[Rfam]
RNA: Bacterial RNase P class A
RNA sequence: UGAGCAAACCAGACAGUUGCGGGCGCUUUGCGAAAGCGGGCGUCUGAGGAAAGUCCGGGCUCCACAGGGCAAGGAUAACGGCUAACGGCCGCCGGGGGUGACCCCAGGGAAAGUGCAACAGAGAUAUACCGCCGGGGGAAACCCCGGUAAGGGUGGAAAGGCGAGGUAAAAGCUCACCGGCGCGCAGGGGACUGCGCGGCCCUGUAAACCCUAUCCGGAGCAACACCGUGGCAGGACGGCAGUUCAGUCUGCAAGCGCGGCCCGCGCGUCCUAUGGAGGUGGCGAGAGCUUGCUGGCAACGGCAGGCCAAGAUAGAUGACUGUCCGCGACAGAACCCGGCUUACAGGUUUGGUCACAAG
Number, nucleotide and partner (000 for none) at each position: 001u355002g354003a353004g000005c351006a350007a349008a348009c347010c346011a000012g324013a323014c322015a321016g320017u319018u318019g000020c046021g045022g044023g043024c042025g041026c040027u039028u038029u000030g000031c000032g000033a000034a000035a000036g000037c000038g028039g027040g026041c025042g024043u023044c022045u021046g020047a000048g000049g000050a000051a342052a341053g340054u000055c339056c338057g337058g336059g335060c220061u219062c218063c217064a000065c000066a000067g000068g263069g262070c000071a000072a000073g216074g215075a214076u213077a212078a000079c091080g090081g089082c088083u000084a000085a000086c000087g000088g082089c081090c080091g079092c000093c107094g105095g104096g103097g102098g000099u000100g000101a000102c097103c096104c095105c094106a000107g093108g211109g210110a000111a000112a000113g209114u208115g205116c204117a203118a000119c000120a000121g000122a000123g000124a000125u000126a000127u000128a000129c152130c151131g148132c147133c146134g145135g144136g143137g142138g000139a000140a000141a000142c137143c136144c135145c134146g133147g132148u131149a000150a000151g130152g129153g000154u000155g000156g000157a000158a000159a000160g178161g177162c000163g175164a174165g173166g000167u000168a000169a000170a000171a000172g000173c165174u164175c163176a000177c161178c160179g000180g200181c198182g197183c196184g195185c194186a193187g192188g000189g000190g000191a000192c187193u186194g185195c184196g183197c182198g181199g000200c180201c000202c000203u117204g116205u115206a000207a000208a114209c113210c109211c108212u077213a076214u075215c074216c073217g063218g062219a061220g060221c000222a000223a000224c281225a280226c279227c278228g000229u000230g000231g000232c000233a272234g271235g270236a269237c268238g267239g000240c000241a000242g000243u000244u000245c000246a000247g000248u000249c000250u000251g000252c000253a000254a000255g000256c266257g265258c264259g000260g000261c000262c069263c068264g258265c257266g256267c238268g237269u236270c235271c234272u233273a000274u000275g000276g000277a000278g227279g226280u225281g224282g000283c000284g000285a000286g000287a000288g307289c306290u305291u304292g303293c302294u301295g300296g000297c000298a000299a000300c295301g294302g293303c292304a291305g290306g289307c288308c000309a000310a000311g000312a000313u000314a000315g000316a000317u000318g018319a017320c016321u015322g014323u013324c012325c000326g000327c000328g000329a000330c000331a000332g000333a000334a000335c059336c058337c057338g056339g055340c053341u052342u051343a000344c000345a000346g010347g009348u008349u007350u006351g005352g000353u003354c002355a001356c000357a000358a000359g000